[Rfam]
RNA sequence: UCGAUGAAACUGAUAACUUUCUAUGAAAGCUGACUAGUUAAUCUUCUGCAACGCUAUUAUGAGGAUUGCCCUUUGAGGCUGAUAGCAAUAGGUCGCCCUAUGGCUGGUCACAUGAUUUUGUUGA
Numbered sequence: 001u002c003g004a005u006g007a008a009a010c011u012g013a014u015a016a017c018u019u020u021c022u023a024u025g026a027a028a029g030c031u032g033a034c035u036a037g038u039u040a041a042u043c044u045u046c047u048g049c050a051a052c053g054c055u056a057u058u059a060u061g062a063g064g065a066u067u068g069c070c071c072u073u074u075g076a077g078g079c080u081g082a083u084a085g086c087a088a089u090a091g092g093u094c095g096c097c098c099u100a101u102g103g104c105u106g107g108u109c110a111c112a113u114g115a116u117u118u119u120g121u122u123g124a
Stems, first nucleotide, its partner, number of pairs: 001124009017029004032109007040067007053086005088101005
The family of this 124-nucleotide RNA is "Staphylococcus-1 RNA".